[Rfam]
RNA sequence: UUACAUUUUGCAAACAUUUGGGGAGACCUUGAUUUUGCUCCCCCGUUCUUCCCUGUGGAGUGCGCUGCGCCGCCCAGUCCUGUCGCCCCCCGGAGGUGAUCCCUCCCUCCUGCCUGCCCGCCAGCCUGACCUGUGCCCGGUUUGCGGGCCGCAGUCUCGGCCCCGGCGCGCCCCCGGCAGCUUUCGGCGCGAUG
Dot-bracket structure: ......................(((............)))...(((.((((.....)))).)))..((((((...................(((((.....))))).........((((((.((((............)))).))))))..............)))))).........................

This 194-nucleotide RNA sequence from Physeter macrocephalus belongs to the Rfam family "Mnt IRES". A search with the family's covariance model found it, with a score of 204 bits. A reference for the family is Stoneley et al. (2001), "An internal ribosome entry segment in the 5' untranslated region of the mnt gene", Oncogene. Rfam classes the family as an internal ribosome entry site. Rfam's curators write: This family represents the Mnt internal ribosome entry site (IRES). Mnt is a transcriptional repressor related to the Myc/Mad family of transcription factors. It is thought that this family allows efficient Mnt synthesis when cap-dependent translation initiation is reduced. NCBI's taxonomy places the organism under Eukaryota, Eumetazoa, Theria, Artiodactyla, Physeter. Rfam links the family to the GO term ribosome binding. Pairs were carried over by alignment from the consensus structure, which was predicted with PFOLD.